[Rfam]
Shown here is a 54-nucleotide RNA from Leptobrachium leishanense, a member of the family "Editing element of GABA-3 exon 9". Rfam 15.1 lists 4,208 matches to the family in 654 species. The organism belongs to Leptobrachium, within Eukaryota. On this family, see Ohlson et al., RNA 2007: "Editing modifies the GABA(A) receptor subunit alpha3". It is annotated as a cis-regulatory element.
RNA sequence: AAAGUGGCAUAUGCCACAGCAAUGGAUUGGUUCAUUGCAGUAUGUUACGCAUUU
Numbered sequence: 001a002a003a004g005u006g007g008c009a010u011a012u013g014c015c016a017c018a019g020c021a022a023u024g025g026a027u028u029g030g031u032u033c034a035u036u037g038c039a040g041u042a043u044g045u046u047a048c049g050c051a052u053u054u
Base pairs, nucleotide, nucleotide: 001054002053003052007050008049010047011046013045014044016041017040019038020037022035023034024033025032026031